The family of this 102-nucleotide RNA from Paenibacillus cellulosilyticus is "Purine riboswitch aptamer". Pairs were carried over by alignment from the consensus structure, which is taken from published work. It scores 73 bits against the family's covariance model. Lineage of the source: Bacteria > Bacillati > Caryophanales > Paenibacillaceae > Paenibacillus. Rfam describes the family as follows. Riboswitches are metabolite binding domains within certain messenger RNAs that serve as precision sensors for their corresponding targets.
RNA sequence: AUAGAGGUUUUCUCAUCGGUUCGUAUAUACUCGAGAAUAGGGCUCGAGCGUAUCUACCCGGAAACCUUAAAUUACCGGACUACGAGCGGAUGGCGGGAUGAA
Numbered sequence: 001a002u003a004g005a006g007g008u009u010u011u012c013u014c015a016u017c018g019g020u021u022c023g024u025a026u027a028u029a030c031u032c033g034a035g036a037a038u039a040g041g042g043c044u045c046g047a048g049c050g051u052a053u054c055u056a057c058c059c060g061g062a063a064a065c066c067u068u069a070a071a072u073u074a075c076c077g078g079a080c081u082a083c084g085a086g087c088g089g090a091u092g093g094c095g096g097g098a099u100g101a102a
Stems, first nucleotide, its partner, number of pairs: 019087007030048006058078004063073002
Its family is annotated with purine nucleobase biosynthetic process in the Gene Ontology.